Shown here is a 92-nucleotide RNA sequence from Taxus chinensis, a member of the family "Small nucleolar RNA R11/Z151". On this family, see Barneche et al., J Mol Biol 2001: "Identification of 66 box C/D snoRNAs in Arabidopsis thaliana: extensive gene duplications generated multiple isoforms predicting new ribosomal RNA 2'-O-methylation sites". Its family is annotated with nucleolus and RNA processing in the Gene Ontology. A search with the family's covariance model found it, with a score of 58 bits. The family's RNA type in Rfam is C/D-box small nucleolar RNA. Taxonomically the source falls in Taxus (Eukaryota, Euphyllophyta, Pinopsida, Taxaceae). The family's consensus secondary structure was predicted with PFOLD.
RNA sequence: UGGCUGAUGAUGAUAAAUUAUCUUAGCGGAUUUCUCUGAGACCGUGUAUUUCAAGGUCGGAGAUGUGCUAUUUGUUACACACACUGAAGCCA
Numbered sequence: 001u002g003g004c005u006g007a008u009g010a011u012g013a014u015a016a017a018u019u020a021u022c023u024u025a026g027c028g029g030a031u032u033u034c035u036c037u038g039a040g041a042c043c044g045u046g047u048a049u050u051u052c053a054a055g056g057u058c059g060g061a062g063a064u065g066u067g068c069u070a071u072u073u074g075u076u077a078c079a080c081a082c083a084c085u086g087a088a089g090c091c092a
Stems, first nucleotide, its partner, number of pairs: 001092005